[Rfam]
RNA sequence: AUCGAUAUGAUUCACUCAAUUUGUCUACUAAACCUACUACUCAUCGUAUCUGAUAUGCGCGGUAUGCUGGUGGACAGAAAACAGAGUUGAUUCAAAACAGAGUUGGUCCAAACCAGACAUUAACAAGAACCCGCGCCAAGCGCGGGUUUUUUU
Numbered sequence: 001a002u003c004g005a006u007a008u009g010a011u012u013c014a015c016u017c018a019a020u021u022u023g024u025c026u027a028c029u030a031a032a033c034c035u036a037c038u039a040c041u042c043a044u045c046g047u048a049u050c051u052g053a054u055a056u057g058c059g060c061g062g063u064a065u066g067c068u069g070g071u072g073g074a075c076a077g078a079a080a081a082c083a084g085a086g087u088u089g090a091u092u093c094a095a096a097a098c099a100g101a102g103u104u105g106g107u108c109c110a111a112a113c114c115a116g117a118c119a120u121u122a123a124c125a126a127g128a129a130c131c132c133g134c135g136c137c138a139a140g141c142g143c144g145g146g147u148u149u150u151u152u153u
Stems, first nucleotide, its partner, number of pairs: 001107005008094001021077010038064004045059004126150011
Leucine operon leader: a 153-nucleotide RNA sequence from Photorhabdus laumondii.
A reference for the family is Kolter and Yanofsky (1982), "Attenuation in amino acid biosynthetic operons", Annu Rev Genet.
It is annotated as a cis-regulatory leader.
NCBI's taxonomy places the organism under Bacteria, Gammaproteobacteria, Morganellaceae, Photorhabdus, Photorhabdus laumondii subsp. laumondii.
At least 6 amino acid operons are known to be regulated by attenuation. In each a leader sequence of 150-200 bp is found upstream of the first gene in the operon. This leader sequence can assume two different secondary structures known as the terminator and the anti-terminator structure.
Gene Ontology term of the family: leucine biosynthetic process.